[Rfam]
RNA sequence: UCGAAGUUCCAGCCAGAAAUGGAUAAGACUUCGGUUUUAGUGUAUACAAGUUUUGGUUUUUUUGAAUGAAGGAGCAAUAGAACCCCUUUUCAUAAAAUCAUAAAAAGGGCUUCUAUUGCUCCUUC
Number, nucleotide and partner (000 for none) at each position: 001u000002c000003g000004a000005a000006g000007u000008u023009c022010c021011a020012g000013c000014c000015a000016g000017a000018a000019a000020u011021g010022g009023a008024u000025a000026a000027g000028a000029c000030u000031u000032c000033g000034g000035u000036u000037u000038u000039a000040g000041u000042g000043u000044a000045u000046a000047c000048a000049a000050g000051u000052u000053u000054u000055g000056g000057u000058u000059u000060u000061u000062u000063u000064g000065a000066a000067u000068g125069a124070a123071g122072g121073a120074g119075c118076a117077a116078u115079a114080g113081a000082a111083c000084c109085c000086c107087u106088u105089u104090u103091c000092a000093u000094a000095a000096a000097a000098u000099c000100a000101u000102a000103a090104a089105a088106a087107g086108g000109g084110c000111u082112u000113c080114u079115a078116u077117u076118g075119c074120u073121c072122c071123u070124u069125c068

The record is a 125-nucleotide RNA sequence from Tripterygium wilfordii, which matches "Plastid-psbA-1 3UTR RNA" in Rfam. Taxonomically the source falls in Tripterygium (Eukaryota, Magnoliopsida, Gunneridae, Celastraceae). From the family's description: Plastid psbA-1 is a non-coding RNA (ncRNA) present in plastids. It was identified in inverted repeat sequences in the 3 prime untranslate region (3UTR) of photosystem II quinone-binding protein (psbA).